[Rfam]
RNA: Small nucleolar RNA SNORD70
Nucleotides: 089
Stems, first nucleotide, its partner, number of pairs: 001089012
Number, partner (000 for none) and nucleotide at each position: 001089u002088u003087c004086a005085u006084u007083g008082u009081u010080g011079u012078c013000g014000a015000u016000g017000a018000u019000g020000u021000a022000u023000u024000c025000u026000u027000u028000u029000u030000g031000g032000a033000c034000c035000u036000g037000a038000a039000u040000u041000u042000a043000c044000g045000u046000g047000a048000u049000c050000u051000a052000a053000c054000u055000c056000a057000a058000a059000u060000a061000u062000u063000c064000g065000u066000c067000a068000c069000u070000a071000c072000c073000a074000c075000u076000g077000a078012g079011a080010c081009a082008a083007c084006a085005a086004u087003g088002g089001a